[Rfam]
About this RNA
Shown here is a 98-nucleotide sequence from Equus asinus, a member of the family "mir-544 microRNA precursor family". A reference for the family is Chiang et al. (2010), "Mammalian microRNAs: experimental evaluation of novel and previously annotated genes", Genes Dev. Lineage of the source: Eukaryota > Metazoa > Euteleostomi > Perissodactyla > Equus.
RNA sequence: GUCACCUGGAGAUCAUGUUAAACUGCAGAUUCUGAUUCAGUGGGUCUGGGGUGGGGCCUGAGGUUCUGCACUUCCAACAAGCUUCCAGGUGAUGCCAA
Numbered sequence: 001g002u003c004a005c006c007u008g009g010a011g012a013u014c015a016u017g018u019u020a021a022a023c024u025g026c027a028g029a030u031u032c033u034g035a036u037u038c039a040g041u042g043g044g045u046c047u048g049g050g051g052u053g054g055g056g057c058c059u060g061a062g063g064u065u066c067u068g069c070a071c072u073u074c075c076a077a078c079a080a081g082c083u084u085c086c087a088g089g090u091g092a093u094g095c096c097a098a
Stems, first nucleotide, its partner, number of pairs: 003091003009085003014081001016079004021073002025069005031063003